[Rfam]
RNA sequence: GGUAACGAGUGUCAGCGAUGGGCCCUGGCUUGCUGACCGGCAACCCUCCUCCGCGGUGGGGUGCUCCAGGUGAUGACCUGGCGGUAGCCAUCCGGCUCCGCAAGCGCGAACG
Numbered sequence: 001g002g003u004a005a006c007g008a009g010u011g012u013c014a015g016c017g018a019u020g021g022g023c024c025c026u027g028g029c030u031u032g033c034u035g036a037c038c039g040g041c042a043a044c045c046c047u048c049c050u051c052c053g054c055g056g057u058g059g060g061g062u063g064c065u066c067c068a069g070g071u072g073a074u075g076a077c078c079u080g081g082c083g084g085u086a087g088c089c090a091u092c093c094g095g096c097u098c099c100g101c102a103a104g105c106g107c108g109a110a111c112g
Base pairs, nucleotide, nucleotide: 001078002077003076009038011037012036013035014034015033016032021030022029039065040064041063044061045060046059048056049055081101082100083099084098086097087096088095089094
Record summary
Rfam assigns this 112-nucleotide sequence to the family "SAM (S-adenosyl methionine) riboswitch aptamer". Rfam links the family to the GO terms S-adenosylmethionine metabolic process and regulation of gene expression. It scores 93 bits against the family's covariance model.